[Rfam]
Record summary:
The family of this 68-nucleotide sequence from Acidovorax delafieldii is "ilvH RNA".

RNA sequence: GACGAAUCUAUUGCCUGCCAAGCCCGCGCAUUACCGUGCGCGGAGGAGGGCAGCGAAAAACGACAGUU
Numbered sequence: 001g002a003c004g005a006a007u008c009u010a011u012u013g014c015c016u017g018c019c020a021a022g023c024c025c026g027c028g029c030a031u032u033a034c035c036g037u038g039c040g041c042g043g044a045g046g047a048g049g050g051c052a053g054c055g056a057a058a059a060a061c062g063a064c065a066g067u068u
Base pairs, nucleotide, nucleotide: 011056012055013054015053016052017051018050019049024043025042026041027040028039029038030037031036
It is annotated as a cis-regulatory element.
NCBI's taxonomy places the organism under Bacteria, Pseudomonadati, Betaproteobacteria, Burkholderiales, Acidovorax delafieldii.